[Rfam]
RNA sequence: CAUCAGUUCCAAGCAUGGAUACCGCGAGACACGCACAGAAAAUGUGUUGCCAUCACCUCCGUCUCUCUGCUCGAGCACACGAGACUGGAGUCGAAUAACAGCACAACAUGU
Number, nucleotide and partner (000 for none) at each position: 001c000002a000003u000004c000005a000006g000007u000008u000009c000010c000011a000012a000013g000014c000015a000016u000017g000018g000019a000020u000021a000022c000023c000024g000025c000026g000027a000028g000029a000030c000031a000032c000033g000034c000035a000036c000037a000038g000039a000040a000041a000042a000043u105044g104045u103046g102047u101048u100049g099050c000051c000052a000053u000054c000055a000056c000057c090058u089059c088060c087061g000062u084063c083064u082065c081066u000067c000068u000069g000070c000071u000072c000073g000074a000075g000076c000077a000078c000079a000080c000081g065082a064083g063084a062085c000086u000087g060088g059089a058090g057091u000092c000093g000094a000095a000096u000097a000098a000099c049100a048101g047102c046103a045104c044105a043106a000107c000108a000109u000110g000111u000